[Rfam]
RNA sequence: ACUGCCUAACGGGCAUAGCAGAAAUGUUCACAAUGCAGCCCCUGUCAGAUUCCAAUGAAUCUGGGAAUUCUGCU
Numbered sequence: 001a002c003u004g005c006c007u008a009a010c011g012g013g014c015a016u017a018g019c020a021g022a023a024a025u026g027u028u029c030a031c032a033a034u035g036c037a038g039c040c041c042c043u044g045u046c047a048g049a050u051u052c053c054a055a056u057g058a059a060u061c062u063g064g065g066a067a068u069u070c071u072g073c074u
Stems, first nucleotide, its partner, number of pairs: 011042003017074007025035002046063007
Dot-bracket structure: ..........[[[...(((((((.((.......))....]]]...(((((((....)))))))....)))))))
The family of this 74-nucleotide sequence from Alligator sinensis is "Mammalian CPEB3 ribozyme".